[Rfam]
RNA sequence: GGCCGGUCUGAGUAGAGUGGUGUUAAGUAAUCACAGCCAGUUACAGAUUUCCUUGUUUCUUCUCCACCCCCACUGCCUCACUUGACUAGCCUUAA
Numbered sequence: 001g002g003c004c005g006g007u008c009u010g011a012g013u014a015g016a017g018u019g020g021u022g023u024u025a026a027g028u029a030a031u032c033a034c035a036g037c038c039a040g041u042u043a044c045a046g047a048u049u050u051c052c053u054u055g056u057u058u059c060u061u062c063u064c065c066a067c068c069c070c071c072a073c074u075g076c077c078u079c080a081c082u083u084g085a086c087u088a089g090c091c092u093u094a095a
Base pairs, nucleotide, nucleotide: 001091002090003089005087006086007085008084010083011082015078016074017073018072019071020070022069025057026056029053
Description:
Y RNA: a 95-nucleotide RNA sequence from Aotus nancymaae. The match comes from Rfam's covariance-model search (65 bits). Rfam describes the family as follows. Y RNAs are components of the Ro ribonucleoprotein particle (Ro RNP), in association with Ro60 and La proteins. The Y RNAs and Ro60 and La proteins are well conserved, but the function of the Ro RNP is not known. It is annotated as a non-coding RNA gene. Pairs were carried over by alignment from the consensus structure, which is taken from published work.